[Rfam]
RNA sequence: CGCUGAAUCCCGCGCGCGGGAGCGGGGGACCCACGGUUCUCAAGCGCACAUGCGCCGGGGCGAAUCGCCGCAGGUGCGGCGUAGCGCGCUAACGCGCGAGCCCGACAGCUAACCCCGUAAGCG
Numbered sequence: 001c002g003c004u005g006a007a008u009c010c011c012g013c014g015c016g017c018g019g020g021a022g023c024g025g026g027g028g029a030c031c032c033a034c035g036g037u038u039c040u041c042a043a044g045c046g047c048a049c050a051u052g053c054g055c056c057g058g059g060g061c062g063a064a065u066c067g068c069c070g071c072a073g074g075u076g077c078g079g080c081g082u083a084g085c086g087c088g089c090u091a092a093c094g095c096g097c098g099a100g101c102c103c104g105a106c107a108g109c110u111a112a113c114c115c116c117g118u119a120a121g122c123g
Base pairs, nucleotide, nucleotide: 001123002122003121004120008021009020010019022118023117024116025115026114027113032057058103059102060101066081067080068079069078084097085096086095087094
Dot-bracket structure: ((((...(((........)))((((((....(........................)(((.....((((........))))..((((......))))...))).........)))))).))))
Rfam assigns this 123-nucleotide RNA sequence from bacterium HR41 to the family "c-di-AMP riboswitch aptamer (ydaO/yuaA leader)". Pairs were carried over by alignment from the consensus structure. Rfam links the family to the GO terms cyclic-di-AMP binding and regulation of gene expression.